[Rfam]
RNA sequence: UUUUUUUGCAACUAACAUCAUUUUCGUCUUAGUAAAGAUAAACUUACCUGUAUUAGUAUAGCCUUCUUUUGUGCGGAUUAUUUGUUCAUACACUAUCUCCUCUACUUCAAGUGAUUCUAUUGUUUGCUCGCCGUCCACAUUAAAUGGGUUCCCACUUUAGAAA
Numbered sequence: 001u002u003u004u005u006u007u008g009c010a011a012c013u014a015a016c017a018u019c020a021u022u023u024u025c026g027u028c029u030u031a032g033u034a035a036a037g038a039u040a041a042a043c044u045u046a047c048c049u050g051u052a053u054u055a056g057u058a059u060a061g062c063c064u065u066c067u068u069u070u071g072u073g074c075g076g077a078u079u080a081u082u083u084g085u086u087c088a089u090a091c092a093c094u095a096u097c098u099c100c101u102c103u104a105c106u107u108c109a110a111g112u113g114a115u116u117c118u119a120u121u122g123u124u125u126g127c128u129c130g131c132c133g134u135c136c137a138c139a140u141u142a143a144a145u146g147g148g149u150u151c152c153c154a155c156u157u158u159a160g161a162a163a
Stems, first nucleotide, its partner, number of pairs: 005077006011033005019026001034069005045058003115162005122155002126149004

Listeria sRNA rli49: a 163-nucleotide sequence from Listeria monocytogenes. Pairs were carried over by alignment from the consensus structure, which was predicted with RNAalifold. For this family Rfam cites "The Listeria transcriptional landscape from saprophytism to virulence" (Toledo-Arana et al., Nature, 2009). The family's RNA type in Rfam is small RNA. NCBI's taxonomy places the organism under Bacteria, Bacilli, Caryophanales, Listeriaceae, Listeria monocytogenes serotype 4b.